Overview: Rfam assigns this 154-nucleotide sequence from Equus caballus to the family "U1 spliceosomal RNA". Lineage of the source: Eukaryota > Metazoa > Vertebrata > Eutheria > Equus. From the family's description: U1 is a small nuclear RNA (snRNA) component of the spliceosome (involved in pre-mRNA splicing).
[Rfam]
RNA sequence: AUACUUACCUGUCAGGGGAGAUACCAUGAUGGUUUUCCCAGGGCAAGUUUCAUCCAUCCAAGUUGGAAACGCUGACCUCUGCGAUUUACCCAACUGUGGGAAACUUGACUGCAUAAUUGGUGAUAGUGGCGGACUGUGUUCUCACUUUCCCCUG
Numbered sequence: 001a002u003a004c005u006u007a008c009c010u011g012u013c014a015g016g017g018g019a020g021a022u023a024c025c026a027u028g029a030u031g032g033u034u035u036u037c038c039c040a041g042g043g044c045a046a047g048u049u050u051c052a053u054c055c056a057u058c059c060a061a062g063u064u065g066g067a068a069a070c071g072c073u074g075a076c077c078u079c080u081g082c083g084a085u086u087u088a089c090c091c092a093a094c095u096g097u098g099g100g101a102a103a104c105u106u107g108a109c110u111g112c113a114u115a116a117u118u119g120g121u122g123a124u125a126g127u128g129g130c131g132g133a134c135u136g137u138g139u140u141c142u143c144a145c146u147u148u149c150c151c152c153u154g
Base pairs, nucleotide, nucleotide: 013111014110015109016039017038018037019036020035021034023033024032025031026030040080041079042078043077047073049071053067054066055065082107083106084105085103086102087101089099090098128153129152131150132149133148136145137144138143
The family's RNA type in Rfam is spliceosomal small nuclear RNA. Its family is annotated with mRNA 5'-splice site recognition, pre-mRNA 5'-splice site binding and U1 snRNP in the Gene Ontology. Its Rfam clan is "U1 clan".